About this RNA:
Rfam assigns this 47-nucleotide sequence from Mus musculus to the family "Histone 3' UTR stem-loop". Taxonomically the source falls in Mus (Eukaryota, Eumetazoa, Tetrapoda, Myomorpha). The mRNAs of metazoan histone genes lack a poly-A tail. 3' end processing occurs at a site between a highly conserved stem-loop (modelled by this family) and a purine rich region around 20 nts downstream (the histone downstream element, or HDE). The stem-loop is bound by a 31 kDa stem-loop binding protein (SLBP - also termed the histone hairpin binding protein, or HBP).

RNA sequence: CCAAAGGCUCUUUUCAGAGCCACCUUCCAAGCUCAAAAAAGGAGCGU
Numbered sequence: 001c002c003a004a005a006g007g008c009u010c011u012u013u014u015c016a017g018a019g020c021c022a023c024c025u026u027c028c029a030a031g032c033u034c035a036a037a038a039a040a041g042g043a044g045c046g047u
Base pairs, nucleotide, nucleotide: 006021007020008019009018010017011016